The family of this 125-nucleotide sequence from Aurantibacter aestuarii is "SAM riboswitch aptamer (S box leader)". Taxonomically the source falls in Aurantibacter (Bacteria, Pseudomonadati, Flavobacteriales, Flavobacteriaceae). Pairs were carried over by alignment from the consensus structure, which is taken from published work.

RNA sequence: AUGUUAUCAAGAAAGGCUGAGGGAAUAGACCCGGUGAAGCCUUAGCAACCCUUUACACAUUGUAAUGAAGGUGCUAAAUUCUACUUAAACUUUUAUUCAUUAAUACUGGUUUGGAUAGAUAACUU
Numbered sequence: 001a002u003g004u005u006a007u008c009a010a011g012a013a014a015g016g017c018u019g020a021g022g023g024a025a026u027a028g029a030c031c032c033g034g035u036g037a038a039g040c041c042u043u044a045g046c047a048a049c050c051c052u053u054u055a056c057a058c059a060u061u062g063u064a065a066u067g068a069a070g071g072u073g074c075u076a077a078a079u080u081c082u083a084c085u086u087a088a089a090c091u092u093u094u095a096u097u098c099a100u101u102a103a104u105a106c107u108g109g110u111u112u113g114g115a116u117a118g119a120u121a122a123c124u125u
Stems, first nucleotide, its partner, number of pairs: 001125001003123006013043005021032003026083004044075004049071002051067001053065002079117001084114002087111002